Y RNA: a 102-nucleotide RNA from Aotus nancymaae. The match comes from Rfam's covariance-model search (79 bits). Y RNAs are components of the Ro ribonucleoprotein particle (Ro RNP), in association with Ro60 and La proteins. The Y RNAs and Ro60 and La proteins are well conserved, but the function of the Ro RNP is not known. In humans the RNA component can be one of four small RNAs -- hY1, hY3, hY4 and hY5. The family's consensus secondary structure is taken from published work. Rfam classes the family as a non-coding RNA gene.
RNA sequence: GGCUGGUCCAAGGGCAGUGGCGUUCACAACUAACUGAUCACAGCCAGUUACAGAUGCCUUUGUUCCUUUUCCACUCCCACUGCUUCACUUGACUAGCCUAAA
Numbered sequence: 001g002g003c004u005g006g007u008c009c010a011a012g013g014g015c016a017g018u019g020g021c022g023u024u025c026a027c028a029a030c031u032a033a034c035u036g037a038u039c040a041c042a043g044c045c046a047g048u049u050a051c052a053g054a055u056g057c058c059u060u061u062g063u064u065c066c067u068u069u070u071c072c073a074c075u076c077c078c079a080c081u082g083c084u085u086c087a088c089u090u091g092a093c094u095a096g097c098c099u100a101a102a
Stems, first nucleotide, its partner, number of pairs: 001098008010090002014086001016081005022076001028064003032060002